A member of the RNA family "ASpks TB sRNA" from Saccharomonospora piscinae, 75 nucleotides long. Taxonomically the source falls in Saccharomonospora (Bacteria, Actinomycetes, Pseudonocardiales, Pseudonocardiaceae). It scores 77 bits against the family's covariance model. By type it is an antisense RNA. Pairs were carried over by alignment from the consensus structure, which is taken from published work.
RNA sequence: CUUGACCGACCCCAGCCACAGCGGCCGCUCCGCUCGCCUGCCCUGGCCGUAGGUGGCGAGCAGAGCAUCCGCCUC
Numbered sequence: 001c002u003u004g005a006c007c008g009a010c011c012c013c014a015g016c017c018a019c020a021g022c023g024g025c026c027g028c029u030c031c032g033c034u035c036g037c038c039u040g041c042c043c044u045g046g047c048c049g050u051a052g053g054u055g056g057c058g059a060g061c062a063g064a065g066c067a068u069c070c071g072c073c074u075c
Stems, first nucleotide, its partner, number of pairs: 015025003031071002038065002043060002047056003